The record is a 58-nucleotide sequence from Planosporangium flavigriseum, which matches "msiK RNA" in Rfam.
The match comes from Rfam's covariance-model search (60 bits).
Pairs were carried over by alignment from the consensus structure, which is taken from published work.
[Rfam]
RNA sequence: CACUAACGCCUUUUACUCGGAUCGUCCGGCACGUUCCUGCCGGUGAAAGGAAUUACUU
Numbered sequence: 001c002a003c004u005a006a007c008g009c010c011u012u013u014u015a016c017u018c019g020g021a022u023c024g025u026c027c028g029g030c031a032c033g034u035u036c037c038u039g040c041c042g043g044u045g046a047a048a049g050g051a052a053u054u055a056c057u058u
Stems, first nucleotide, its partner, number of pairs: 009050007026043006